[Rfam]
RNA sequence: UUCUUAUCUUGAGAGACGGAGGGACUGGCCCUAUGAAAUCUCAGCAACCUGCCCUAGGGUAAAGGUGCUAAUUCCAGCAGGAAAUUUCCUGAAAGAUAAGAA
Number, nucleotide and partner (000 for none) at each position: 001u102002u101003c100004u099005u098006a097007u096008c095009u000010u000011g000012a000013g042014a041015g040016a039017c000018g000019g000020a000021g031022g030023g029024a000025c077026u076027g075028g074029c023030c022031c021032u000033a000034u000035g000036a000037a000038a000039u016040c015041u014042c013043a069044g068045c067046a066047a000048c065049c064050u061051g060052c059053c058054c000055u000056a000057g000058g053059g052060u051061a050062a000063a000064g049065g048066u046067g045068c044069u043070a000071a000072u000073u094074c028075c027076a026077g025078c091079a090080g089081g088082a087083a000084a000085u000086u000087u082088c081089c080090u079091g078092a000093a000094a073095g008096a007097u006098a005099a004100g003101a002102a001

Shown here is a 102-nucleotide RNA sequence from Oceanobacillus piezotolerans, a member of the family "SAM riboswitch aptamer (S box leader)". Lineage of the source: Bacteria > Bacillati > Caryophanales > Bacillaceae > Oceanobacillus. The base pairs follow the family's consensus structure, which is taken from published work.